This 94-nucleotide RNA from Citrus unshiu belongs to the Rfam family "Small nucleolar RNA Z221/R21b".
It is annotated as a C/D-box small nucleolar RNA.
The match comes from Rfam's covariance-model search (77 bits).
On this family, see Chen et al., Nucleic Acids Res 2003: "The high diversity of snoRNAs in plants: identification and comparative study of 120 snoRNA genes from Oryza sativa".
Its family is annotated with RNA processing and nucleolus in the Gene Ontology.
RNA sequence: GGGCUGUGAUGAAGAAAUAAAGAAAGUCAUGCACCACGCUGAGUGAUUAAAAGUGUGCUGAUAAUUCUUUCACACCCAUUUUUAAUCUGAGCCC
Numbered sequence: 001g002g003g004c005u006g007u008g009a010u011g012a013a014g015a016a017a018u019a020a021a022g023a024a025a026g027u028c029a030u031g032c033a034c035c036a037c038g039c040u041g042a043g044u045g046a047u048u049a050a051a052a053g054u055g056u057g058c059u060g061a062u063a064a065u066u067c068u069u070u071c072a073c074a075c076c077c078a079u080u081u082u083u084a085a086u087c088u089g090a091g092c093c094c
Stems, first nucleotide, its partner, number of pairs: 001094004